[Rfam]
The family of this 71-nucleotide RNA is "Small nucleolar RNA SNORD82". The family has 27 seed sequences and 649 matches in Rfam 15.1. The family's RNA type in Rfam is C/D-box small nucleolar RNA. Rfam links the family to the GO terms RNA processing and nucleolus. It is one of the family's seed sequences. About the family: snoRNA U82 or Z25 is found in both humans and mice.
RNA sequence: AGCACAAAUGAUGAAUAACAAAGGGACUUAAUACUGAAACCAGAUGUUACAUUGUAGUGUGCUGAUGUGCU
Numbered sequence: 001a002g003c004a005c006a007a008a009u010g011a012u013g014a015a016u017a018a019c020a021a022a023g024g025g026a027c028u029u030a031a032u033a034c035u036g037a038a039a040c041c042a043g044a045u046g047u048u049a050c051a052u053u054g055u056a057g058u059g060u061g062c063u064g065a066u067g068u069g070c071u
Stems, first nucleotide, its partner, number of pairs: 002070005